[Rfam]
RNA sequence: AGGAGGAACAAUCCCAGUGGCUACGGCAACUCUGGAAACCUGGAUUCACCUCCCGCAGUAAGUCCGGGGCUCUCCGUCUGCAGGCCUGGAGGCUUCGGGGCGGG
Numbered sequence: 001a002g003g004a005g006g007a008a009c010a011a012u013c014c015c016a017g018u019g020g021c022u023a024c025g026g027c028a029a030c031u032c033u034g035g036a037a038a039c040c041u042g043g044a045u046u047c048a049c050c051u052c053c054c055g056c057a058g059u060a061a062g063u064c065c066g067g068g069g070c071u072c073u074c075c076g077u078c079u080g081c082a083g084g085c086c087u088g089g090a091g092g093c094u095u096c097g098g099g100g101c102g103g104g
Base pairs, nucleotide, nucleotide: 002096003095004094005093009088010087013084014083019078020077021076025072028071030069031068032067033066034065035064036063040058041057042056

Record summary:
This 104-nucleotide sequence from Vulpes vulpes belongs to the Rfam family "mir-8834 microRNA precursor family".